RNA sequence: GGGGACGAAAUUGGUUUCGACUGUUGUUGCCAGGGGUUAUGUGGCGUGUAGAGGUUGUAGGCUCCUCUAAAAACCUUCAAACAAUAACCGCUAAUAACGAAUUAGCUUUAGCAGCUUAAUCUCUGCUACGGAACUUUAGUUUUUUCUCUCGAAUUCUAAAUGUUCUGACAAUGAUCGGGAGGCGAUUCUUUUGGUUUUUGGUUCCUAAAAGAGUUUGUAUUUGAGCCGAAUAGGAAAGAGAGUCCUGUCUGAGGGUGAACCUCUUUCCGAAAUUUUAUACACAGACUACACACGUAGAGGCUGAUCUGGGGCGCAAUAGGACGCGGGUUCGAACCCCGCCGUCUCCAA
Numbered sequence: 001g002g003g004g005a006c007g008a009a010a011u012u013g014g015u016u017u018c019g020a021c022u023g024u025u026g027u028u029g030c031c032a033g034g035g036g037u038u039a040u041g042u043g044g045c046g047u048g049u050a051g052a053g054g055u056u057g058u059a060g061g062c063u064c065c066u067c068u069a070a071a072a073a074c075c076u077u078c079a080a081a082c083a084a085u086a087a088c089c090g091c092u093a094a095u096a097a098c099g100a101a102u103u104a105g106c107u108u109u110a111g112c113a114g115c116u117u118a119a120u121c122u123c124u125g126c127u128a129c130g131g132a133a134c135u136u137u138a139g140u141u142u143u144u145u146c147u148c149u150c151g152a153a154u155u156c157u158a159a160a161u162g163u164u165c166u167g168a169c170a171a172u173g174a175u176c177g178g179g180a181g182g183c184g185a186u187u188c189u190u191u192u193g194g195u196u197u198u199u200g201g202u203u204c205c206u207a208a209a210a211g212a213g214u215u216u217g218u219a220u221u222u223g224a225g226c227c228g229a230a231u232a233g234g235a236a237a238g239a240g241a242g243u244c245c246u247g248u249c250u251g252a253g254g255g256u257g258a259a260c261c262u263c264u265u266u267c268c269g270a271a272a273u274u275u276u277a278u279a280c281a282c283a284g285a286c287u288a289c290a291c292a293c294g295u296a297g298a299g300g301c302u303g304a305u306c307u308g309g310g311g312c313g314c315a316a317u318a319g320g321a322c323g324c325g326g327g328u329u330c331g332a333a334c335c336c337c338g339c340c341g342u343c344u345c346c347a348a
Stems, first nucleotide, its partner, number of pairs: 001346007021319007034307006042299001045294005050068005057078001059076003109128006129167005135160003139156001142153001145182007185214006197230006231270001233268005243258002247286003253280001323339005
RNA: transfer-messenger RNA
Organism: Leptospira interrogans